[Rfam]
Nucleotides: 084
Base pairs, nucleotide, nucleotide: 014070015069016068017067018066019065020064025062026061027060028059029058030057031056032055037051038050039049
Number, partner (000 for none) and nucleotide at each position: 001000g002000c003000c004000g005000c006000c007000c008000a009000c010000c011000c012000c013000c014070a015069a016068u017067c018066c019065u020064u021000g022000c023000u024000a025062c026061c027060u028059g029058g030057g031056u032055g033000a034000a035000a036000g037051u038050g039049c040000u041000g042000u043000c044000u045000g046000a047000a048000u049039g050038u051037a052000a053000u054000g055032c056031a057030c058029c059028u060027a061026g062025g063000c064020a065019a066018g067017g068016a069015u070014u071000c072000g073000g074000a075000g076000a077000g078000c079000a080000a081000g082000u083000g084000c
Rfam assigns this 84-nucleotide sequence from Trichechus manatus to the family "mir-500 microRNA precursor family". For this family Rfam cites "Identification of new central nervous system specific mouse microRNAs" (Wheeler et al., FEBS Lett, 2006). Rfam 15.1 lists 402 matches to the family in 133 species. The source organism's lineage runs through Eukaryota, Metazoa, Bilateria, Trichechus and Trichechus manatus. A search with the family's covariance model found it, with a score of 86 bits.